[Rfam]
RNA: RNase E 5' UTR element
Organism: Providencia alcalifaciens
RNA sequence: CUGCCAAGAUGUUUAAAAACGAAAAUUGGCUUUGCUAUGUUAGCUUUAGGUGUUUUUGCACUUUCAGCUAUAAUUAUUUUUAGCUAGUAGAAUACAAGUUAGACGUAAUACUGUAGGAAUUUAUUAUUUGAUGGCGUAACGAUGCUGCAAUGGCGUAAGACAUCUAACAAGAUCAAGUAAAUUAGCGAGCAACGAAUUUUAGCUUAUUGGGUUGGGAGUCUCCGUUUUCUAAGAAAUUUACGGCAUCCUGAUUAAGAACGCUGAAUUUUUAAUCUAAAAAUCAGGUUCACCGAAUACUGCGCGUCUCUAUACGAACGACUGCCGAGAGGUAGACGGCUUUGUAAAAAUCAUGAGGCCAUCGGUUUACAGUAGCUCUUUCUUUCGCUGCUCUUUAUUA
Numbered sequence: 001c002u003g004c005c006a007a008g009a010u011g012u013u014u015a016a017a018a019a020c021g022a023a024a025a026u027u028g029g030c031u032u033u034g035c036u037a038u039g040u041u042a043g044c045u046u047u048a049g050g051u052g053u054u055u056u057u058g059c060a061c062u063u064u065c066a067g068c069u070a071u072a073a074u075u076a077u078u079u080u081u082a083g084c085u086a087g088u089a090g091a092a093u094a095c096a097a098g099u100u101a102g103a104c105g106u107a108a109u110a111c112u113g114u115a116g117g118a119a120u121u122u123a124u125u126a127u128u129u130g131a132u133g134g135c136g137u138a139a140c141g142a143u144g145c146u147g148c149a150a151u152g153g154c155g156u157a158a159g160a161c162a163u164c165u166a167a168c169a170a171g172a173u174c175a176a177g178u179a180a181a182u183u184a185g186c187g188a189g190c191a192a193c194g195a196a197u198u199u200u201a202g203c204u205u206a207u208u209g210g211g212u213u214g215g216g217a218g219u220c221u222c223c224g225u226u227u228u229c230u231a232a233g234a235a236a237u238u239u240a241c242g243g244c245a246u247c248c249u250g251a252u253u254a255a256g257a258a259c260g261c262u263g264a265a266u267u268u269u270u271a272a273u274c275u276a277a278a279a280a281u282c283a284g285g286u287u288c289a290c291c292g293a294a295u296a297c298u299g300c301g302c303g304u305c306u307c308u309a310u311a312c313g314a315a316c317g318a319c320u321g322c323c324g325a326g327a328g329g330u331a332g333a334c335g336g337c338u339u340u341g342u343a344a345a346a347a348u349c350a351u352g353a354g355g356c357c358a359u360c361g362g363u364u365u366a367c368a369g370u371a372g373c374u375c376u377u378u379c380u381u382u383c384g385c386u387g388c389u390c391u392u393u394a395u396u397a
Stems, first nucleotide, its partner, number of pairs: 003030005010021004124180008136168002142163003147154002187390005193384004201374004215249002217246001222243004257287003261284004266280004289363005303356005316335002319332005